[Rfam]
This 210-nucleotide sequence from Streptomyces buecherae belongs to the Rfam family "Streptomyces RNA 1601". Rfam classes the family as a small RNA. A search with the family's covariance model found it, with a score of 115 bits. Rfam's curators write: Identified by deep sequencing of transcriptome at the end of exponential growth phase. Appears longer on northern blot than sequencing transcript. Streptomyces specific. For this family Rfam cites "Deep sequencing-based identification of small non-coding RNAs in Streptomyces coelicolor" (Vockenhuber et al., RNA Biol, 2011).

RNA sequence: CGUGACCGGCUGGGCAUCAGUGUGCCCGGCCCACAAGUGGAGGCUCCGACUCUCCCACCUUGCUGGCCCCCGAGGCUGGCGGGUCCCGGUCUGGCAGGGCCCGUCGUUCCGUACGGACGACGUGGAGCUGCCUGAUGCGCCCCGCGGUGAUCCGCAGCGGUGCUCCCGGAUUGCGAGGAGCCCCCCUGUGUCCCGUUCGGGGCGUUUUAU
Numbered sequence: 001c002g003u004g005a006c007c008g009g010c011u012g013g014g015c016a017u018c019a020g021u022g023u024g025c026c027c028g029g030c031c032c033a034c035a036a037g038u039g040g041a042g043g044c045u046c047c048g049a050c051u052c053u054c055c056c057a058c059c060u061u062g063c064u065g066g067c068c069c070c071c072g073a074g075g076c077u078g079g080c081g082g083g084u085c086c087c088g089g090u091c092u093g094g095c096a097g098g099g100c101c102c103g104u105c106g107u108u109c110c111g112u113a114c115g116g117a118c119g120a121c122g123u124g125g126a127g128c129u130g131c132c133u134g135a136u137g138c139g140c141c142c143c144g145c146g147g148u149g150a151u152c153c154g155c156a157g158c159g160g161u162g163c164u165c166c167c168g169g170a171u172u173g174c175g176a177g178g179a180g181c182c183c184c185c186c187u188g189u190g191u192c193c194c195g196u197u198c199g200g201g202g203c204g205u206u207u208u209a210u
Stems, first nucleotide, its partner, number of pairs: 004091006012027002028085005035060001037058004041053002062080007093132005102122006139203006145195003156187002159184002162181005